[Rfam]
RNA: Small nucleolar RNA Z182
Nucleotides: 121
Base pairs, nucleotide, nucleotide: 003119004118006116007115008114
Number, partner (000 for none) and nucleotide at each position: 001000g002000g003119u004118g005000c006116g007115c008114c009000u010000a011000u012000g013000a014000u015000g016000a017000g018000u019000g020000u021000u022000u023000c024000a025000a026000c027000c028000u029000g030000u031000g032000u033000c034000a035000g036000g037000a038000u039000u040000u041000g042000a043000a044000c045000c046000a047000c048000u049000g050000g051000g052000c053000a054000a055000a056000u057000a058000a059000a060000u061000c062000u063000c064000a065000c066000u067000a068000g069000g070000g071000u072000u073000u074000u075000u076000u077000u078000u079000u080000u081000c082000u083000u084000c085000u086000c087000u088000c089000a090000c091000u092000a093000g094000g095000g096000u097000u098000u099000u100000u101000u102000u103000u104000u105000u106000u107000c108000u109000u110000c111000u112000g113000a114008g115007g116006c117000a118004u119003a120000u121000u